The record is a 120-nucleotide RNA from Cohnella cholangitidis, which matches "Bacillus sRNA ncr1015" in Rfam. The family's consensus secondary structure is taken from published work.
RNA sequence: GUGUAAGAUAGGAUAAUUUUGUGCAUUUGUCUUAAUUUAAUUGGAAUCUGAUUAUAACAUCAUGUCUGUUUAAGUGCAAUAUAUAAAGAACCUGGACAGCCGUUCUAGGUUCUUUUUUUG
Numbered sequence: 001g002u003g004u005a006a007g008a009u010a011g012g013a014u015a016a017u018u019u020u021g022u023g024c025a026u027u028u029g030u031c032u033u034a035a036u037u038u039a040a041u042u043g044g045a046a047u048c049u050g051a052u053u054a055u056a057a058c059a060u061c062a063u064g065u066c067u068g069u070u071u072a073a074g075u076g077c078a079a080u081a082u083a084u085a086a087a088g089a090a091c092c093u094g095g096a097c098a099g100c101c102g103u104u105c106u107a108g109g110u111u112c113u114u115u116u117u118u119u120g
Stems, first nucleotide, its partner, number of pairs: 033073001035071001038068001039065001042062002085115011
The match comes from Rfam's covariance-model search (85 bits). On this family, see Irnov et al., Nucleic Acids Res 2010: "Identification of regulatory RNAs in Bacillus subtilis".